Small nucleolar RNA snoR2/U65: a 156-nucleotide RNA from Cicer arietinum. Lineage of the source: Eukaryota > Streptophytina > fabids > Papilionoideae > Cicer. It is annotated as an H/ACA-box small nucleolar RNA. It scores 92 bits against the family's covariance model. On this family, see Shaw et al., J Cell Sci 1998: "Localization and processing from a polycistronic precursor of novel snoRNAs in maize".
RNA sequence: AGUCCGAUGCCACAUCUCUAGUAGCUAUAUGCUCUGACCAAAUAUGCUAUGGUUGAACUAAAAUCAAGAGUGCUUGUCAUUUGUUUCACAUUCUGAUUGGAACCUGUGGAUCCAAUAUACGAUGAUUUUGCAGUGCCGAUUUGUGCGAUUACAUUU
Numbered sequence: 001a002g003u004c005c006g007a008u009g010c011c012a013c014a015u016c017u018c019u020a021g022u023a024g025c026u027a028u029a030u031g032c033u034c035u036g037a038c039c040a041a042a043u044a045u046g047c048u049a050u051g052g053u054u055g056a057a058c059u060a061a062a063a064u065c066a067a068g069a070g071u072g073c074u075u076g077u078c079a080u081u082u083g084u085u086u087c088a089c090a091u092u093c094u095g096a097u098u099g100g101a102a103c104c105u106g107u108g109g110a111u112c113c114a115a116u117a118u119a120c121g122a123u124g125a126u127u128u129u130g131c132a133g134u135g136c137c138g139a140u141u142u143g144u145g146c147g148a149u150u151a152c153a154u155u156u
Stems, first nucleotide, its partner, number of pairs: 002058002005055004009050001013046003017042001021038002024032002086148002089145002099137002104133003108128005
Gene Ontology terms of the family: RNA processing and nucleolus.